[Rfam]
The family of this 83-nucleotide sequence from Equus caballus is "mir-1343 microRNA precursor family". Rfam 15.1 lists 238 matches to the family in 131 species. Its family is annotated with miRNA-mediated post-transcriptional gene silencing and RISC complex in the Gene Ontology. Taxonomically the source falls in Equus (Eukaryota, Vertebrata, Gnathostomata, Equidae).
RNA sequence: CUAGCUUCGGUGCUGGGGAAUGGCCCCCGGGGUGGGCCUCCACUCCGGCCCCUCUUGGGGCCCGCACUCUUACUUCGGGCUGG
Numbered sequence: 001c002u003a004g005c006u007u008c009g010g011u012g013c014u015g016g017g018g019a020a021u022g023g024c025c026c027c028c029g030g031g032g033u034g035g036g037c038c039u040c041c042a043c044u045c046c047g048g049c050c051c052c053u054c055u056u057g058g059g060g061c062c063c064g065c066a067c068u069c070u071u072a073c074u075u076c077g078g079g080c081u082g083g
Stems, first nucleotide, its partner, number of pairs: 003081003007078004012073001015070004021064003025060007034051005
Dot-bracket structure: ..(((.((((.(..((((..(((.(((((((..(((((........)))))..))))))).)))..))))..).)))))))..
The match comes from Rfam's covariance-model search (73 bits).